Notes
Shown here is a 68-nucleotide RNA from Alteribacillus iranensis, a member of the family "Bacillaceae-1 RNA". The base pairs follow the family's consensus structure, which is taken from published work. NCBI's taxonomy places the organism under Bacteria, Bacilli, Caryophanales, Bacillaceae, Alteribacillus.

RNA sequence: AACAGAGGAACUUCUACUAAAAUCGCACACGUCCUGUGUGCAACGUAGAAGCCACCACAUCCUGUGGC
Numbered sequence: 001a002a003c004a005g006a007g008g009a010a011c012u013u014c015u016a017c018u019a020a021a022a023u024c025g026c027a028c029a030c031g032u033c034c035u036g037u038g039u040g041c042a043a044c045g046u047a048g049a050a051g052c053c054a055c056c057a058c059a060u061c062c063u064g065u066g067g068c
Stems, first nucleotide, its partner, number of pairs: 011051007026040005055067004
The family's RNA type in Rfam is small RNA.